[Rfam]
This 76-nucleotide sequence from Cnephaeus nilssonii belongs to the Rfam family "mir-9223 microRNA precursor family". A search with the family's covariance model found it, with a score of 80 bits.
RNA sequence: GGCGGUUCUCGGGUGAUGCACCCUGGAAUUGGACUCCCUCCUCUCCGGUUCUGGGGGGUGUCACCUGAGAACCACU
Numbered sequence: 001g002g003c004g005g006u007u008c009u010c011g012g013g014u015g016a017u018g019c020a021c022c023c024u025g026g027a028a029u030u031g032g033a034c035u036c037c038c039u040c041c042u043c044u045c046c047g048g049u050u051c052u053g054g055g056g057g058g059u060g061u062c063a064c065c066u067g068a069g070a071a072c073c074a075c076u
Stems, first nucleotide, its partner, number of pairs: 002075001005072013019058001021056003025052009